[Rfam]
Background:
Rfam assigns this 120-nucleotide sequence from Camelus dromedarius to the family "Small nucleolar RNA SNORA31". The base pairs follow the family's consensus structure, which was predicted with RNAalifold. The family has 5 seed sequences and 2,094 matches in Rfam 15.1. Its family is annotated with RNA processing and nucleolus in the Gene Ontology. For this family Rfam cites "RNomics: an experimental approach that identifies 201 candidates for novel, small, non-messenger RNAs in mouse" (Huttenhofer et al., EMBO J, 2001). NCBI's taxonomy places the organism under Eukaryota, Eumetazoa, Deuterostomia, Artiodactyla, Camelus. ACA31 (SNORA31) belongs to the H/ACA class of snoRNAs which are thought to guide the sites of modification of uridines to pseudouridines.

RNA sequence: CUGCUCUACUGACAGACCUUGAGCAGUCCUGCUGUUCUCUUGGUUUGCACUAGGGGAUAGAAGAAAAAAAUCCUUGCGCUUUCUGUCUGGUGGCAGCCCACGGUUGAUAGUGGCUAAUCA
Numbered sequence: 001c002u003g004c005u006c007u008a009c010u011g012a013c014a015g016a017c018c019u020u021g022a023g024c025a026g027u028c029c030u031g032c033u034g035u036u037c038u039c040u041u042g043g044u045u046u047g048c049a050c051u052a053g054g055g056g057a058u059a060g061a062a063g064a065a066a067a068a069a070a071u072c073c074u075u076g077c078g079c080u081u082u083c084u085g086u087c088u089g090g091u092g093g094c095a096g097c098c099c100a101c102g103g104u105u106g107a108u109a110g111u112g113g114c115u116a117a118u119c120a
Stems, first nucleotide, its partner, number of pairs: 002059002004056004010049002013047006021037007071113002074110003079106001082103002084100002087096003